[Rfam]
RNA sequence: UGGGGCUGGGGAAGGGCUGCUGGGCGCUGGGGCCAGCCGGCCCUGCCUCGUAUCAGCCAGCCUCACCCGCGCCCAAGAUCAAUUCCCCGGCAGGCUCCGUGCUGGGGUUCAUCCCGUGCAGUAACAGGUGUGAGCAUUCAUGCAGCGUUUUGAUGGUCAUGUAUGAUACUGCAUACAACA
Numbered sequence: 001u002g003g004g005g006c007u008g009g010g011g012a013a014g015g016g017c018u019g020c021u022g023g024g025c026g027c028u029g030g031g032g033c034c035a036g037c038c039g040g041c042c043c044u045g046c047c048u049c050g051u052a053u054c055a056g057c058c059a060g061c062c063u064c065a066c067c068c069g070c071g072c073c074c075a076a077g078a079u080c081a082a083u084u085c086c087c088c089g090g091c092a093g094g095c096u097c098c099g100u101g102c103u104g105g106g107g108u109u110c111a112u113c114c115c116g117u118g119c120a121g122u123a124a125c126a127g128g129u130g131u132g133a134g135c136a137u138u139c140a141u142g143c144a145g146c147g148u149u150u151u152g153a154u155g156g157u158c159a160u161g162u163a164u165g166a167u168a169c170u171g172c173a174u175a176c177a178a179c180a
Stems, first nucleotide, its partner, number of pairs: 003074004008068003015062004019057004024053001026047001028045003032041003086107003089103004116174008125165002131159003135155004142149001
Shown here is a 180-nucleotide sequence from Larus smithsonianus, a member of the family "Small Cajal body specific RNA 16".
Rfam describes the family as follows. scaRNAs are a specific class of small nuclear RNAs which localise to the Cajal bodies and guide the modification of RNA polymerase II transcribed spliceosomal RNAs U1, U2, U4, U5 and U12. ACA47 belongs to the H/ACA box class of guide RNAs as it has the predicted hairpin-hinge-hairpin-tail structure, the conserved H/ACA-box motifs and is found associated with GAR1. ACA47 is predicted to guide the pseudouridylation of residue U5 of the U1 spliceosomal snRNA.
Its family is annotated with nucleolus and RNA processing in the Gene Ontology.
A reference for the family is Darzacq et al. (2002), "Cajal body-specific small nuclear RNAs: a novel class of 2'-O-methylation and pseudouridylation guide RNAs", EMBO J.
The base pairs follow the family's consensus structure, which was predicted with RNAfold.